Rfam assigns this 133-nucleotide RNA sequence from Enhydra lutris to the family "Small nucleolar RNA SNORA61".
RNA sequence: ACCCUCGGGUUCCCUUUCCUGUUGGAUCUGAACGUUGGUCUUGGUGGUCUUAAAAAGAGGAAAAGGAGCACUGAAGCUGGCCUCGUGGUGCUGAUAGUCUGGUAUAUAGCCUGGGUGCUAGUUUCAAACAGGA
Number, nucleotide and partner (000 for none) at each position: 001a000002c000003c060004c059005u058006c057007g000008g000009g000010u000011u000012c000013c000014c000015u000016u000017u000018c000019c047020u046021g045022u044023u043024g000025g040026a039027u038028c037029u000030g000031a000032a000033c000034g000035u000036u000037g028038g027039u026040c025041u000042u000043g023044g022045u021046g020047g019048u000049c000050u000051u000052a000053a000054a000055a000056a000057g006058a005059g004060g003061a000062a000063a000064a000065g000066g000067a000068g000069c000070a000071c000072u000073g000074a000075a000076g000077c121078u120079g119080g118081c117082c000083u115084c000085g000086u000087g000088g000089u000090g000091c000092u000093g111094a000095u109096a000097g000098u000099c000100u000101g000102g000103u000104a000105u000106a000107u000108a000109g095110c000111c093112u000113g000114g000115g083116u000117g081118c080119u079120a078121g077122u000123u000124u000125c000126a000127a000128a000129c000130a000131g000132g000133a000
About the family: ACA61 is a member of the H/ACA class of snoRNA that guide the sites of modification of uridines to pseudouridines.
The family has 25 seed sequences and 881 matches in Rfam 15.1.